This 123-nucleotide RNA sequence from Cuscuta campestris belongs to the Rfam family "Small nucleolar RNA SNORD14". By type it is a C/D-box small nucleolar RNA. Gene Ontology terms of the family: RNA processing and nucleolus. The family's consensus secondary structure was predicted with PFOLD. About the family: U14 small nucleolar RNA (U14 snoRNA) is required for early cleavages of eukaryotic precursor rRNAs.
RNA sequence: UGAUGGUGAUGAAGAAACGAAAGGCUUGUUUCUCAGAACAUUCGCAGUGGCCGCCUAAGAGCUUUCGCCUUCGCCGGGCUUGAGAGCUUAUGCUGUUUAUGUCCUUCCCGGAUGUCUGAAUCG
Numbered sequence: 001u002g003a004u005g006g007u008g009a010u011g012a013a014g015a016a017a018c019g020a021a022a023g024g025c026u027u028g029u030u031u032c033u034c035a036g037a038a039c040a041u042u043c044g045c046a047g048u049g050g051c052c053g054c055c056u057a058a059g060a061g062c063u064u065u066c067g068c069c070u071u072c073g074c075c076g077g078g079c080u081u082g083a084g085a086g087c088u089u090a091u092g093c094u095g096u097u098u099a100u101g102u103c104c105u106u107c108c109c110g111g112a113u114g115u116c117u118g119a120a121u122c123g
Stems, first nucleotide, its partner, number of pairs: 001123004061087006